[Rfam]
RNA sequence: ACUCAGGCACGAUUCACGCGGUGUAACCGCGUGGAAGCGACCUGAAGUAUCAAACCUGAGGGA
Numbered sequence: 001a002c003u004c005a006g007g008c009a010c011g012a013u014u015c016a017c018g019c020g021g022u023g024u025a026a027c028c029g030c031g032u033g034g035a036a037g038c039g040a041c042c043u044g045a046a047g048u049a050u051c052a053a054a055c056c057u058g059a060g061g062g063a
Stems, first nucleotide, its partner, number of pairs: 001048003004044004013035009
RNA: L31-Corynebacteriaceae ribosomal protein leader
Organism: Corynebacterium renale